Shown here is a 65-nucleotide RNA, a member of the family "L31-Actinobacteria ribosomal protein leader". The base pairs follow the family's consensus structure, which is taken from published work. It is annotated as a cis-regulatory leader. A reference for the family is Eckert and Weinberg (2020), "Discovery of 20 novel ribosomal leader candidates in bacteria and archaea", BMC Microbiol. Clan: Ribosomal Protein L31 Leader clan.
RNA sequence: GCGGUACCGGUUCACGCCGUCCGGUCGUGCGCCGAGCGUGCGCCCCAGAGGGCGACCCGGCGACC
Numbered sequence: 001g002c003g004g005u006a007c008c009g010g011u012u013c014a015c016g017c018c019g020u021c022c023g024g025u026c027g028u029g030c031g032c033c034g035a036g037c038g039u040g041c042g043c044c045c046c047a048g049a050g051g052g053c054g055a056c057c058c059g060g061c062g063a064c065c
Base pairs, nucleotide, nucleotide: 003065004064005063007060008059009058010057015054016053017052018051020049021048